[Rfam]
RNA sequence: UGGACCGAUGAUGACGGCUGGUGGCGUAUGAGUCAUGGAUGAUGGUGAAUAAUGUGUGUCUGAAACUCUGAGGUCCAA
Numbered sequence: 001u002g003g004a005c006c007g008a009u010g011a012u013g014a015c016g017g018c019u020g021g022u023g024g025c026g027u028a029u030g031a032g033u034c035a036u037g038g039a040u041g042a043u044g045g046u047g048a049a050u051a052a053u054g055u056g057u058g059u060c061u062g063a064a065a066c067u068c069u070g071a072g073g074u075c076c077a078a
Stems, first nucleotide, its partner, number of pairs: 002076005

This 78-nucleotide RNA sequence from Lynx pardinus belongs to the Rfam family "Small nucleolar RNA SNORD113/SNORD114 family". Rfam links the family to the GO terms RNA processing and nucleolus. A reference for the family is Cavaille et al. (2002), "Identification of tandemly-repeated C/D snoRNA genes at the imprinted human 14q32 domain reminiscent of those at the Prader-Willi/Angelman syndrome region", Hum Mol Genet. The imprinted human domain at 14q32 contains two clusters of tandemly repeated small nucleolar RNAs named 14q(I) and 14q(II) snoRNAs. These two clusters are named SNORD113 and SNORD114 respectively in the HGNC approved gene symbol nomenclature. The snoRNAs found in both clusters are clearly related and are represented here by a single family. It is annotated as a C/D-box small nucleolar RNA. The family is grouped with related families in Rfam's "SNORD74 clan".